This 76-nucleotide RNA from Flavobacterium geliluteum belongs to the Rfam family "Flavo-1 RNA".
RNA sequence: UAAUAGCCCCGAUAGAAGCGACAUCCUCUUGUGGCGGGGUUCGCCAUAAGAGAUACAGCGAAUAGCGGGACAGGUG
Numbered sequence: 001u002a003a004u005a006g007c008c009c010c011g012a013u014a015g016a017a018g019c020g021a022c023a024u025c026c027u028c029u030u031g032u033g034g035c036g037g038g039g040u041u042c043g044c045c046a047u048a049a050g051a052g053a054u055a056c057a058g059c060g061a062a063u064a065g066c067g068g069g070a071c072a073g074g075u076g
Stems, first nucleotide, its partner, number of pairs: 009068003013064002018059002023054003028050005033044001

The match comes from Rfam's covariance-model search (64 bits).
NCBI's taxonomy places the organism under Bacteria, Pseudomonadati, Bacteroidota, Flavobacteriia, Flavobacterium.